[Rfam]
RNA sequence: CCCCGGAGUAGAAGCAGUCAGUGGCGCAGGCCGCGGGUCAUUGCUCCGGUG
Numbered sequence: 001c002c003c004c005g006g007a008g009u010a011g012a013a014g015c016a017g018u019c020a021g022u023g024g025c026g027c028a029g030g031c032c033g034c035g036g037g038u039c040a041u042u043g044c045u046c047c048g049g050u051g
Stems, first nucleotide, its partner, number of pairs: 005047006015036001019037001021034005
RNA: Xanthine riboswitch aptamer (NMT1 RNA)